[Rfam]
RNA sequence: GAGUCAGUGGCGGGUGGCGAGCGUAAGCCGUGUGGUGUACGCGUAGCGAAGGCGAGUCUCAAAAGGCGUUGAGUCGCCCGUCCUGGACCCGAAGCGGGAUGAUCUAGCCCUGGGCAGGUUGAAGCGCGGGUAAGACCGUGUGGAGGACCGGACCCACCUGGGUUGAAAACCGGGGGGAUGACCUGGGGCUAGGGGUGAAAGGCCAAUCAAAUUCCGUGAUAGCUGGUU
Number, nucleotide and partner (000 for none) at each position: 001g000002a000003g000004u000005c085006a084007g083008u000009g082010g081011c080012g079013g078014g077015u076016g075017g074018c073019g000020a000021g042022c041023g040024u039025a000026a000027g036028c035029c034030g000031u000032g000033u000034g029035g028036u027037g000038u000039a024040c023041g022042c021043g000044u000045a000046g053047c052048g000049a000050a000051g000052g047053c046054g000055a000056g067057u066058c065059u064060c000061a000062a000063a000064a059065g058066g057067c056068g000069u000070u000071g000072a000073g018074u017075c016076g015077c014078c013079c012080g011081u010082c009083c007084u006085g005086g000087a000088c226089c225090c000091g223092a000093a000094g000095c216096g215097g214098g213099a212100u211101g000102a000103u000104c192105u191106a190107g189108c188109c187110c186111u185112g184113g183114g182115c180116a000117g149118g148119u147120u146121g000122a000123a000124g141125c140126g139127c138128g137129g136130g000131u000132a000133a000134g000135a000136c129137c128138g127139u126140g125141u124142g000143g000144a000145g000146g120147a119148c118149c117150g000151g000152a000153c177154c176155c175156a000157c174158c173159u172160g171161g170162g000163u000164u000165g000166a000167a000168a000169a000170c161171c160172g159173g158174g157175g155176g154177g153178a000179u000180g115181a000182c114183c113184u112185g111186g110187g109188g108189c107190u106191a105192g104193g000194g204195g203196u202197g000198a000199a000200a000201g000202g196203c195204c194205a000206a000207u000208c000209a000210a000211a100212u099213u098214c097215c096216g095217u000218g000219a000220u000221a000222g000223c091224u000225g089226g088227u000228u000

About this RNA: The record is a 228-nucleotide part of an RNA from Bifidobacterium reuteri, which matches "Bacterial large subunit ribosomal RNA" in Rfam. Taxonomically the source falls in Bifidobacterium reuteri (Bacteria, Bacillati, Bifidobacteriales, Bifidobacterium). A search with the family's covariance model found it, with a score of 2565 bits.